[Rfam]
RNA: SAM riboswitch aptamer (S box leader)
RNA sequence: CUGCCAUCCCGAGCGGCCGAGAGACCUGGCUCCACGACGCCGCAGCAACCACCUCCACCCGGAGGCAGGUGCUUCAGCCAGGAGCGAUGGAGG
Numbered sequence: 001c002u003g004c005c006a007u008c009c010c011g012a013g014c015g016g017c018c019g020a021g022a023g024a025c026c027u028g029g030c031u032c033c034a035c036g037a038c039g040c041c042g043c044a045g046c047a048a049c050c051a052c053c054u055c056c057a058c059c060c061g062g063a064g065g066c067a068g069g070u071g072c073u074u075c076a077g078c079c080a081g082g083a084g085c086g087a088u089g090g091a092g093g
Stems, first nucleotide, its partner, number of pairs: 001093002004090005013043005021032003026081004044073004049069002052064001054062001077085001